[Rfam]
RNA sequence: GGAAACCCGUCGAGGUAAGGUCUAACCAACCGCCUUGUACCGAGUCCUUGGAGCCGAAGUGGUAACAUCAGGUUUAAGCGUAGGACAGGGAGCAACAGAGCCGAAACGAAAGCGAAGUGAUUGAGCUGGGAAAUUAUUAUUUAGUUGGAUUAGGUCGAUGCGUUUAUACUCGUAGCAGACAAUAUUGCUUAACUCGAUAGGGUGAGAGUUGAGGAACUACCCCCAGUCUGAGAGCU
Number, nucleotide and partner (000 for none) at each position: 001g000002g000003a000004a000005a000006c000007c000008c000009g000010u000011c000012g036013a035014g034015g033016u000017a000018a000019g031020g030021u029022c000023u205024a000025a203026c202027c000028a000029a021030c020031c019032g000033c015034c014035u013036u012037g000038u091039a000040c089041c088042g000043a000044g086045u000046c084047c083048u082049u080050g079051g075052a074053g073054c072055c071056g000057a000058a068059g000060u067061g066062g000063u000064a000065a000066c061067a060068u058069c000070a000071g055072g054073u053074u052075u051076a000077a000078g000079c050080g049081u000082a048083g047084g046085a000086c044087a000088g041089g040090g000091a038092g000093c000094a000095a000096c000097a000098g000099a000100g000101c000102c000103g000104a000105a000106a000107c000108g000109a000110a000111a000112g000113c000114g000115a000116a000117g000118u000119g000120a000121u000122u230123g228124a000125g227126c226127u225128g224129g223130g222131a000132a000133a000134u000135u000136a000137u000138u000139a000140u000141u000142u000143a000144g000145u000146u000147g221148g220149a000150u000151u219152a218153g217154g180155u179156c178157g000158a000159u174160g173161c172162g171163u000164u000165u000166a000167u000168a000169c000170u000171c162172g161173u160174a159175g000176c000177a000178g156179a155180c154181a000182a000183u000184a000185u216186u215187g000188c213189u212190u211191a210192a209193c208194u207195c206196g000197a000198u000199a000200g000201g000202g026203u025204g000205a023206g195207a194208g193209u192210u191211g190212a189213g188214g000215a186216a185217c153218u152219a151220c148221c147222c130223c129224c128225a127226g126227u125228c123229u000230g122231a000232g000233a000234g000235c000236u000
Group II catalytic intron D1-D4-6: a 236-nucleotide RNA sequence from Fusibacter sp. 3D3. The literature on the family includes a 2001 paper in Trends Genet by Bonen and Vogel, "The ins and outs of group II introns". Group II introns are found in rRNA, tRNA and mRNA of organelles in fungi, plants and protists, and also in mRNA in bacteria. Taxonomically the source falls in Fusibacter (Bacteria, Bacillati, Bacillota, Fusibacteraceae). A search with the family's covariance model found it, with a score of 121 bits.